[Rfam]
RNA sequence: GCCCUUUUCUUGGGGUCUCAAAAGACCUAUAUCCCCCUUGCCGUCUUCGGGCGGCUAUGGCGAUAAACAGGCGAUGGAAUAAACCUAUUGGACCCGGGGGCGGUACCCGGCGCCUCCACCAAAAACCGGUCGAUCGUGACUGACAUGUCAGGGGCGACUCACAUGUCAGAAAUGGCAGACCGGCUUUUGAUGGGGGCGAAAUAGGAUCGACAAGGGCGUAAAGAUCGACUUUUUGCUCGGCAUUGUACCACCGUUAUCGGGCUAAAAUUGUAGUUGCAAACGACAACUAUGCGGAAGCUCGUCUCGCUGCUUAAUCGCAGUGUGACACUUCAAAUCAAGUCCUAAGGGGUCGCACCUUUAGGCGGGGUUCGGAGGUACCUGGCAACAGAAACCUCCACU
Dot-bracket structure: .......................................(((((......)))))...(((((.....((.((((........(((.(((...(((((.......)))))(((((((..........................................................................)))))))............)))))).......)))).))..)))))(((..[.[..[[.))).....]].].]....................................................................................................[[[[..((((((]]]]..........))))))...
Numbered sequence: 001g002c003c004c005u006u007u008u009c010u011u012g013g014g015g016u017c018u019c020a021a022a023a024g025a026c027c028u029a030u031a032u033c034c035c036c037c038u039u040g041c042c043g044u045c046u047u048c049g050g051g052c053g054g055c056u057a058u059g060g061c062g063a064u065a066a067a068c069a070g071g072c073g074a075u076g077g078a079a080u081a082a083a084c085c086u087a088u089u090g091g092a093c094c095c096g097g098g099g100g101c102g103g104u105a106c107c108c109g110g111c112g113c114c115u116c117c118a119c120c121a122a123a124a125a126c127c128g129g130u131c132g133a134u135c136g137u138g139a140c141u142g143a144c145a146u147g148u149c150a151g152g153g154g155c156g157a158c159u160c161a162c163a164u165g166u167c168a169g170a171a172a173u174g175g176c177a178g179a180c181c182g183g184c185u186u187u188u189g190a191u192g193g194g195g196g197c198g199a200a201a202u203a204g205g206a207u208c209g210a211c212a213a214g215g216g217c218g219u220a221a222a223g224a225u226c227g228a229c230u231u232u233u234u235g236c237u238c239g240g241c242a243u244u245g246u247a248c249c250a251c252c253g254u255u256a257u258c259g260g261g262c263u264a265a266a267a268u269u270g271u272a273g274u275u276g277c278a279a280a281c282g283a284c285a286a287c288u289a290u291g292c293g294g295a296a297g298c299u300c301g302u303c304u305c306g307c308u309g310c311u312u313a314a315u316c317g318c319a320g321u322g323u324g325a326c327a328c329u330u331c332a333a334a335u336c337a338a339g340u341c342c343u344a345a346g347g348g349g350u351c352g353c354a355c356c357u358u359u360a361g362g363c364g365g366g367g368u369u370c371g372g373a374g375g376u377a378c379c380u381g382g383c384a385a386c387a388g389a390a391a392c393c394u395c396c397a398c399u
Stems, first nucleotide, its partner, number of pairs: 040055005059237005069230002072227004084216003088213003094110005111198007238253003243264001245262001248260002365380004371396006

Shown here is a 399-nucleotide sequence from Pararhizobium polonicum, a member of the family "Alphaproteobacteria transfer-messenger RNA". Gene Ontology term of the family: RNA catabolic process. The match comes from Rfam's covariance-model search (312 bits). The organism belongs to Pararhizobium, within Bacteria. Pairs were carried over by alignment from the consensus structure, which is taken from published work. The literature on the family includes a 2002 paper in Nucleic Acids Res by Williams, "The tmRNA Website: invasion by an intron". The family's RNA type in Rfam is non-coding RNA gene.